[Rfam]
RNA sequence: GCGGGGCGCGUCUAGGGUUCCGCCGAUCGUCGGUCUCCAGGGUCUGGAACCGCCGUCGGGCCGCGACCGAGAGAUGCAGGCAGUCCGUCGUCCGGGACUGCUCCACGGCGGGAUAAAAGCCCGGGAGGC
Numbered sequence: 001g002c003g004g005g006g007c008g009c010g011u012c013u014a015g016g017g018u019u020c021c022g023c024c025g026a027u028c029g030u031c032g033g034u035c036u037c038c039a040g041g042g043u044c045u046g047g048a049a050c051c052g053c054c055g056u057c058g059g060g061c062c063g064c065g066a067c068c069g070a071g072a073g074a075u076g077c078a079g080g081c082a083g084u085c086c087g088u089c090g091u092c093c094g095g096g097a098c099u100g101c102u103c104c105a106c107g108g109c110g111g112g113a114u115a116a117a118a119g120c121c122c123g124g125g126a127g128g129c
Stems, first nucleotide, its partner, number of pairs: 008077005015068002020065001022062001023059005079102008104124001106127001110122003

Source information:
This 129-nucleotide RNA sequence belongs to the Rfam family "Guanidine-I riboswitch aptamer". The pairing is the family consensus, mapped onto this sequence. This family represents a conserved RNA structure found upstream of the ykkC and yxkD genes in Bacillus subtilis and related genes in other bacteria. A reference for the family is Battaglia et al. (2017), "Structural basis for guanidine sensing by the ykkC family of riboswitches", RNA.